[Rfam]
RNA sequence: UCUAAAAAUUAUUGAGUUCAGUUGGGUAUUCGGACCCAACGCUAUUAAGUCUUGCUAGAGACAGGACCCAAUGCUAUUAAGUUUGGCUGCUCAACUAGACUCAACAAUAAUUUUUUACU
Number, nucleotide and partner (000 for none) at each position: 001u117002c000003u000004a114005a113006a112007a111008a000009u109010u000011a000012u104013u103014g102015a101016g100017u099018u098019c000020a096021g095022u094023u093024g092025g091026g090027u089028a088029u000030u000031c000032g052033g051034a050035c049036c000037c000038a046039a045040c000041g000042c000043u000044a000045u039046u038047a000048a000049g035050u034051c033052u032053u000054g000055c000056u085057a084058g083059a082060g000061a000062c000063a000064g000065g000066a000067c000068c000069c000070a000071a000072u000073g000074c000075u000076a000077u000078u000079a000080a000081g000082u059083u058084u057085g056086g000087c000088u028089g027090c026091u025092c024093a023094a022095c021096u020097a000098g018099a017100c016101u015102c014103a013104a012105c000106a000107a000108u000109a009110a000111u007112u006113u005114u004115u000116u000117a001118c000119u000
Rfam assigns this 119-nucleotide sequence from Populus deltoides to the family "MIR474 microRNA precursor family".
The literature on the family includes a 2005 paper in Plant Cell by Lu et al., "Novel and mechanical stress-responsive MicroRNAs in Populus trichocarpa that are absent from Arabidopsis".